The record is a 108-nucleotide RNA from Paenibacillus ginsengarvi, which matches "TPP riboswitch aptamer (THI element)" in Rfam. Gene Ontology term of the family: thiamine pyrophosphate binding. The source organism's lineage runs through Bacteria, Bacillati, Bacilli, Paenibacillaceae and Paenibacillus. The match comes from Rfam's covariance-model search (81 bits).
RNA sequence: AGUUGUCACUAGGGGAGCCCGCCGGGCUGAGAUUGGAUGCUCACGCAUUCUAGACCCUUCGAACCUGAUCUGGAUGAUGCCAGCGUAGGGAAGUGGGACACACGAAUC
Numbered sequence: 001a002g003u004u005g006u007c008a009c010u011a012g013g014g015g016a017g018c019c020c021g022c023c024g025g026g027c028u029g030a031g032a033u034u035g036g037a038u039g040c041u042c043a044c045g046c047a048u049u050c051u052a053g054a055c056c057c058u059u060c061g062a063a064c065c066u067g068a069u070c071u072g073g074a075u076g077a078u079g080c081c082a083g084c085g086u087a088g089g090g091a092a093g094u095g096g097g098a099c100a101c102a103c104g105a106a107u108c
Base pairs, nucleotide, nucleotide: 006096007095008094009093010092011058012057013056014055017027018026019025020024035050036049037048038047039046040045064089065088066087067086070083071082072081073080